[Rfam]
Nucleotides: 160
Base pairs, nucleotide, nucleotide: 011145012144013143014142018030019029020028031140032139033138034137035136036135041049042048050125051124052123058098059097060096061095062094063093101119102118103117104116
Number, partner (000 for none) and nucleotide at each position: 001000u002000u003000c004000a005000g006000a007000g008000a009000c010000c011145a012144u013143c014142c015000g016000a017000a018030c019029u020028c021000c022000g023000g024000u025000u026000u027000g028020g029019a030018g031140g032139c033138g034137g035136g036135g037000g038000a039000a040000c041049u042048g043000u044000u045000u046000u047000u048042u049041g050125g051124g052123g053000c054000g055000a056000a057000u058098c059097c060096u061095g062094c063093u064000c065000a066000a067000a068000g069000c070000g071000c072000u073000g074000c075000g076000u077000a078000c079000u080000g081000c082000c083000g084000g085000c086000a087000g088000c089000c090000g091000c092000a093063g094062g095061c096060a097059g098058g099000c100000a101119g102118g103117g104116a105000g106000g107000a108000g109000a110000a111000g112000c113000c114000g115000c116104u117103c118102c119101c120000g121000a122000g123052c124051c125050c126000g127000u128000c129000a130000a131000c132000u133000a134000a135036c136035c137034u138033c139032g140031c141000a142014g143013g144012a145011u146000g147000u148000a149000a150000a151000g152000g153000g154000g155000c156000u157000u158000a159000c160000a
Description:
This 160-nucleotide RNA sequence from Paenalicyclobacillus macrosporangiidus belongs to the Rfam family "c-di-AMP riboswitch aptamer (ydaO/yuaA leader)".